[Rfam]
RNA sequence: GAAAACUGCAUAGGUUUAUCUCGUAUAUGUUUGAGGGAAUGGCUCAAACGUUUCUACCCGGAACCGAAACUUUCUGGACUACGAGCUUCGUAUAAGAUUGA
Number, nucleotide and partner (000 for none) at each position: 001g000002a000003a000004a000005a000006c000007u000008g000009c000010a000011u000012a000013g000014g000015u000016u000017u000018a087019u000020c085021u084022c083023g082024u081025a080026u000027a000028u000029g049030u048031u047032u046033g045034a044035g043036g000037g000038a000039a000040u000041g000042g000043c035044u034045c033046a032047a031048a030049c029050g000051u000052u000053u000054c000055u000056a000057c000058c077059c076060g075061g074062a073063a071064c000065c000066g000067a000068a000069a000070c000071u063072u000073u062074c061075u060076g059077g058078a000079c000080u025081a024082c023083g022084a021085g020086c000087u018088u000089c000090g000091u000092a000093u000094a000095a000096g000097a000098u000099u000100g000101a000
The record is a 101-nucleotide RNA sequence from Paenibacillus montaniterrae, which matches "Purine riboswitch aptamer" in Rfam. The literature on the family includes a 2013 paper in Nature by Reining et al., "Three-state mechanism couples ligand and temperature sensing in riboswitches". Rfam links the family to the GO term purine nucleobase biosynthetic process. NCBI's taxonomy places the organism under Bacteria, Bacillati, Bacilli, Caryophanales, Paenibacillus. The family's consensus secondary structure is taken from published work.